[Rfam]
RNA: cow-rumen-2 RNA
RNA sequence: AUCGAAGCAGAAGAGUAGCGUCUUCUGCACACAGCCGCCAUUAGCGCCUGAAGAUGUAGCUGGAAUACAGGAUGACCGAUCCAUAAGCUUCAGGGUGAGUCUACUCU
Numbered sequence: 001a002u003c004g005a006a007g008c009a010g011a012a013g014a015g016u017a018g019c020g021u022c023u024u025c026u027g028c029a030c031a032c033a034g035c036c037g038c039c040a041u042u043a044g045c046g047c048c049u050g051a052a053g054a055u056g057u058a059g060c061u062g063g064a065a066u067a068c069a070g071g072a073u074g075a076c077c078g079a080u081c082c083a084u085a086a087g088c089u090u091c092a093g094g095g096u097g098a099g100u101c102u103a104c105u106c107u
Base pairs, nucleotide, nucleotide: 002079007028008027009026010025011024012023013022042103043102044101045099047094048093049092050091051090052089053088061083062082063081064080066078070077071076